Shown here is a 105-nucleotide RNA from Regulus satrapa, a member of the family "Small nucleolar RNA SNORD46".
From the family's description: U40 is a C/D box small nucleolar RNA, also known as snoZ153 in plants. The human sequence has also been annotated in the sequence databases as U46. U40 is encoded in intron 2 of the ribosomal protein S8 gene in human, and is hypothesised to guide methylation of 2'-O-ribose residues on 28S ribosomal RNA. This family represents vertebrate U40.
NCBI's taxonomy places the organism under Eukaryota, Metazoa, Sauria, Archelosauria, Regulus.
The family's RNA type in Rfam is C/D-box small nucleolar RNA.
The family is grouped with related families in Rfam's "SNORD46 clan".
On this family, see Nicoloso et al., J Mol Biol 1996: "Intron-encoded, antisense small nucleolar RNAs: the characterization of nine novel species points to their direct role as guides for the 2'-O-ribose methylation of rRNAs".
The base pairs follow the family's consensus structure.

[Rfam]
RNA sequence: AGUUGGAGUGAUGAAGCUUUCACCUUAGGUGGAUGCAGCGGGCCGUUCUGGCCCCUGGCGGCAUCUGCCGAUGCUGGGGUUUGUCAUAGUUACACUGACCACACU
Number, nucleotide and partner (000 for none) at each position: 001a105002g104003u103004u101005g100006g099007a000008g000009u000010g000011a000012u000013g000014a000015a000016g000017c000018u000019u000020u000021c000022a000023c000024c000025u000026u000027a000028g000029g000030u000031g000032g000033a000034u000035g000036c000037a000038g000039c000040g000041g000042g000043c000044c000045g000046u000047u000048c000049u000050g000051g000052c000053c000054c000055c000056u000057g000058g000059c000060g000061g000062c000063a000064u000065c000066u000067g000068c000069c000070g000071a000072u000073g000074c000075u000076g000077g000078g000079g000080u000081u000082u000083g000084u000085c000086a000087u000088a000089g000090u000091u000092a000093c000094a000095c000096u000097g000098a000099c006100c005101a004102c000103a003104c002105u001